[Rfam]
RNA sequence: GGUGCGCACCGCGACUGGCGUACGGGGAAGCAACCUCGGUGAAGCGGUGUGCGGCAACCACCACGAGGUGCCGCCCCGCCUGGGCACCCCGG
Numbered sequence: 001g002g003u004g005c006g007c008a009c010c011g012c013g014a015c016u017g018g019c020g021u022a023c024g025g026g027g028a029a030g031c032a033a034c035c036u037c038g039g040u041g042a043a044g045c046g047g048u049g050u051g052c053g054g055c056a057a058c059c060a061c062c063a064c065g066a067g068g069u070g071c072c073g074c075c076c077c078g079c080c081u082g083g084g085c086a087c088c089c090c091g092g
Stems, first nucleotide, its partner, number of pairs: 003053010015041001017080004024037004068087005
Description:
This 92-nucleotide RNA from Streptomyces tubercidicus belongs to the Rfam family "ZMP/ZTP riboswitch aptamer (pfl RNA motif)".